Shown here is a 149-nucleotide RNA from Pseudomonas sp. S9, a member of the family "proV RNA".

RNA sequence: CGUCGCUGUUGCUUGAAACCGAGCAAACAGACCGAGGCAAAGUGCCUUGGACCGAAGUAAUAAAAACGUGCUGGCCAACCAUCGAACGGGCGCCAGCCCAACAAGAAAAUUCGGAUGUACGCGCAUCUCAGGUUGAGAUGUGUUCACCC
Numbered sequence: 001c002g003u004c005g006c007u008g009u010u011g012c013u014u015g016a017a018a019c020c021g022a023g024c025a026a027a028c029a030g031a032c033c034g035a036g037g038c039a040a041a042g043u044g045c046c047u048u049g050g051a052c053c054g055a056a057g058u059a060a061u062a063a064a065a066a067c068g069u070g071c072u073g074g075c076c077a078a079c080c081a082u083c084g085a086a087c088g089g090g091c092g093c094c095a096g097c098c099c100a101a102c103a104a105g106a107a108a109a110u111u112c113g114g115a116u117g118u119a120c121g122c123g124c125a126u127c128u129c130a131g132g133u134u135g136a137g138a139u140g141u142g143u144u145c146a147c148c149c
Base pairs, nucleotide, nucleotide: 006030007029008028009027010026011024012023013022014021015020032050033049034048035047036046037045038044122142123141124140125139126138127137128136129135

About this RNA: Taxonomically the source falls in Pseudomonas (Bacteria, Pseudomonadati, Pseudomonadota, Gammaproteobacteria). By type it is a small RNA.